This 88-nucleotide sequence from Drosophila virilis belongs to the Rfam family "mir-46/mir-47/mir-281 microRNA precursor family". The base pairs follow the family's consensus structure, which was predicted with RNAalifold.
[Rfam]
RNA sequence: CGAAUAAGUGAAUAAAGAGAGCUGUCCGUCGACAGUCCAGUAACAAAUGUAAUACUGUCAUGGAAUUGCUCUCUUUGUAUGAUAUUCG
Numbered sequence: 001c002g003a004a005u006a007a008g009u010g011a012a013u014a015a016a017g018a019g020a021g022c023u024g025u026c027c028g029u030c031g032a033c034a035g036u037c038c039a040g041u042a043a044c045a046a047a048u049g050u051a052a053u054a055c056u057g058u059c060a061u062g063g064a065a066u067u068g069c070u071c072u073c074u075u076u077g078u079a080u081g082a083u084a085u086u087c088g
Stems, first nucleotide, its partner, number of pairs: 014076005020070003025064004031059003035055002
A reference for the family is Lai et al. (2003), "Computational identification of Drosophila microRNA genes", Genome Biol.
Taxonomically the source falls in Drosophila (Eukaryota, Muscomorpha, Eremoneura, Schizophora).